[Rfam]
RNA sequence: GUCAGCACCCCCGGCUGAAGCACGGGGGCUUCAUGCCUCCGAUUCAGAUAGCUGACCAGCCUUAGUAAUCAUGACUACGUUCAGAGCAAGAGUUAAAGUUCCUACCUUGAGUUGCGUAGCUAGACUCAAGCCCUAGAACCAAAACGUUAAACAUCUCGGUUGGGGUUAAGGAAGUGCGUUUUGGAUGCGUACCGACUCUGAACAUUGGCGAAGCUAACGUUAC
Numbered sequence: 001g002u003c004a005g006c007a008c009c010c011c012c013g014g015c016u017g018a019a020g021c022a023c024g025g026g027g028g029c030u031u032c033a034u035g036c037c038u039c040c041g042a043u044u045c046a047g048a049u050a051g052c053u054g055a056c057c058a059g060c061c062u063u064a065g066u067a068a069u070c071a072u073g074a075c076u077a078c079g080u081u082c083a084g085a086g087c088a089a090g091a092g093u094u095a096a097a098g099u100u101c102c103u104a105c106c107u108u109g110a111g112u113u114g115c116g117u118a119g120c121u122a123g124a125c126u127c128a129a130g131c132c133c134u135a136g137a138a139c140c141a142a143a144a145c146g147u148u149a150a151a152c153a154u155c156u157c158g159g160u161u162g163g164g165g166u167u168a169a170g171g172a173a174g175u176g177c178g179u180u181u182u183g184g185a186u187g188c189g190u191a192c193c194g195a196c197u198c199u200g201a202a203c204a205u206u207g208g209c210g211a212a213g214c215u216a217a218c219g220u221u222a223c
Base pairs, nucleotide, nucleotide: 001056002055003054004053005052006051007049009028010027011025012024014021015020059209060208061207064076065075066074068072079203080202081201082200083199084198091197092196093195094194100137101136106130107129108128109127110126111125112124113123117216118215119214120213121212139184140183141182142181143180144179145178146177147176151175152174154172155171156170159167